[Rfam]
RNA sequence: GAAAGACGAGUGAGAAACUCGUCCGCCGAAUGACCAAGGGUUCCUGGGCCAGGUUAAUCCGCCCAGGGUGAGUCGGGACCUAAGGCGAGGCCGACAGGCGUAGUCGAUGGACAACGGGUUGAUAUUCCCGUACCCGUGUGAACGCGCCCCUGGUGAAUCAGUGAUGCUAAGCGCCCUGAAGCCGCCUUCGAACCUUCGGGUUCUCCGGUGUGUGGAUGCGCGUGAACCGAUCUGGUAGUAGCCAAGCGAUGGGGUGACGCAGGAAGGUAGCUGAGCCAGUCAGUGGUAAUACUGGUGUAAGCGUGUAGGGCGUGACCUAGGCAAAUCCGGGUCACAUUCAGCCUGAGACGUGAUGCGUAGCCGAUUGAGGCGAAUUCAGUGAUCCUAUGCUGCCGAGAAAAGCCUCUAGCGAGCUUUCACACGGCCCGUACCCCAAACCGACACAGGUGGUCAGGUAGAGAAUACUAAGGCGAU
Numbered sequence: 001g002a003a004a005g006a007c008g009a010g011u012g013a014g015a016a017a018c019u020c021g022u023c024c025g026c027c028g029a030a031u032g033a034c035c036a037a038g039g040g041u042u043c044c045u046g047g048g049c050c051a052g053g054u055u056a057a058u059c060c061g062c063c064c065a066g067g068g069u070g071a072g073u074c075g076g077g078a079c080c081u082a083a084g085g086c087g088a089g090g091c092c093g094a095c096a097g098g099c100g101u102a103g104u105c106g107a108u109g110g111a112c113a114a115c116g117g118g119u120u121g122a123u124a125u126u127c128c129c130g131u132a133c134c135c136g137u138g139u140g141a142a143c144g145c146g147c148c149c150c151u152g153g154u155g156a157a158u159c160a161g162u163g164a165u166g167c168u169a170a171g172c173g174c175c176c177u178g179a180a181g182c183c184g185c186c187u188u189c190g191a192a193c194c195u196u197c198g199g200g201u202u203c204u205c206c207g208g209u210g211u212g213u214g215g216a217u218g219c220g221c222g223u224g225a226a227c228c229g230a231u232c233u234g235g236u237a238g239u240a241g242c243c244a245a246g247c248g249a250u251g252g253g254g255u256g257a258c259g260c261a262g263g264a265a266g267g268u269a270g271c272u273g274a275g276c277c278a279g280u281c282a283g284u285g286g287u288a289a290u291a292c293u294g295g296u297g298u299a300a301g302c303g304u305g306u307a308g309g310g311c312g313u314g315a316c317c318u319a320g321g322c323a324a325a326u327c328c329g330g331g332u333c334a335c336a337u338u339c340a341g342c343c344u345g346a347g348a349c350g351u352g353a354u355g356c357g358u359a360g361c362c363g364a365u366u367g368a369g370g371c372g373a374a375u376u377c378a379g380u381g382a383u384c385c386u387a388u389g390c391u392g393c394c395g396a397g398a399a400a401a402g403c404c405u406c407u408a409g410c411g412a413g414c415u416u417u418c419a420c421a422c423g424g425c426c427c428g429u430a431c432c433c434c435a436a437a438c439c440g441a442c443a444c445a446g447g448u449g450g451u452c453a454g455g456u457a458g459a460g461a462a463u464a465c466u467a468a469g470g471c472g473a474u
Stems, first nucleotide, its partner, number of pairs: 005023006024472004032452004038432002043067006052060002074428004079110002084105003088101001090099003114131005134424009144414001246410002251406005259393004265386003270380005275296006297356002301351004308344003312335007320328002358373001360371003438447002454466004
RNA: Bacterial large subunit ribosomal RNA, nucleotides 1404 to 1877
Organism: Rhodococcus (subgen. Prescottella) equi